[Rfam]
RNA sequence: CCCGAGGCCACAUGCUUCUUUAUAUCCCAAUACGGAUUACGUGGCUAUGGAAUGUAAGGAAGUGUGUGGUUUCGGC
Numbered sequence: 001c002c003c004g005a006g007g008c009c010a011c012a013u014g015c016u017u018c019u020u021u022a023u024a025u026c027c028c029a030a031u032a033c034g035g036a037u038u039a040c041g042u043g044g045c046u047a048u049g050g051a052a053u054g055u056a057a058g059g060a061a062g063u064g065u066g067u068g069g070u071u072u073c074g075g076c
Stems, first nucleotide, its partner, number of pairs: 007070019028050001030048003
Rfam assigns this 76-nucleotide RNA sequence from Ailuropoda melanoleuca to the family "mir-1 microRNA precursor family". For this family Rfam cites "An extensive class of small RNAs in Caenorhabditis elegans" (Lee and Ambros, Science, 2001). Rfam 15.1 lists 4,474 matches to the family in 965 species. Rfam's curators write: This family represents the microRNA (miRNA) mir-1 family. miRNAs are transcribed as ~70nt precursors (modelled here) and subsequently processed by the Dicer enzyme to give a ~22nt product. In this case the mature sequence comes from the 3' arm of the precursor. The extents of the hairpin precursors are not generally known and are estimated based on hairpin prediction. The products are thought to have regulatory roles through complementarity to mRNA. The involvement of Dicer in miRNA processing suggests a relationship with the phenomenon of RNA interference. miRNAs are numbered based on the sequence of the mature RNA. This family also contains the mir-206 from human, which appears to be related to mir-1. The base pairs follow the family's consensus structure, which was predicted with RNAalifold.